[Rfam]
RNA: Small nucleolar RNA SNORD73
RNA sequence: AAUGAAUGAUGACAAAAUGUUUCGGUCCCAGAUGACACAGAGUGAUUCCACUUUUCCAUUUUCUGACAUU
Numbered sequence: 001a002a003u004g005a006a007u008g009a010u011g012a013c014a015a016a017a018u019g020u021u022u023c024g025g026u027c028c029c030a031g032a033u034g035a036c037a038c039a040g041a042g043u044g045a046u047u048c049c050a051c052u053u054u055u056c057c058a059u060u061u062u063c064u065g066a067c068a069u070u
Stems, first nucleotide, its partner, number of pairs: 001070004